Group II catalytic intron D1-D4-2: a 116-nucleotide RNA.
Group II introns are found in rRNA, tRNA and mRNA of organelles in fungi, plants and protists, and also in mRNA in bacteria.
Its family is annotated with Group II intron splicing in the Gene Ontology.
Pairs were carried over by alignment from the consensus structure.

RNA sequence: GACGGUGGGCCCGUCGGAGUCGCCAUACAGGUGGAGACUUCAAACUAACUUAAGGUGCUGUAGUCAAAAGCUAUGGUAUUGAGCGUUAAGGAAAAGGCAGUAGAAAGCUGUCAAGU
Numbered sequence: 001g002a003c004g005g006u007g008g009g010c011c012c013g014u015c016g017g018a019g020u021c022g023c024c025a026u027a028c029a030g031g032u033g034g035a036g037a038c039u040u041c042a043a044a045c046u047a048a049c050u051u052a053a054g055g056u057g058c059u060g061u062a063g064u065c066a067a068a069a070g071c072u073a074u075g076g077u078a079u080u081g082a083g084c085g086u087u088a089a090g091g092a093a094a095a096g097g098c099a100g101u102a103g104a105a106a107g108c109u110g111u112c113a114a115g116u
Stems, first nucleotide, its partner, number of pairs: 001015005016041006023034004046115001049090005054080002057077003061073004096112006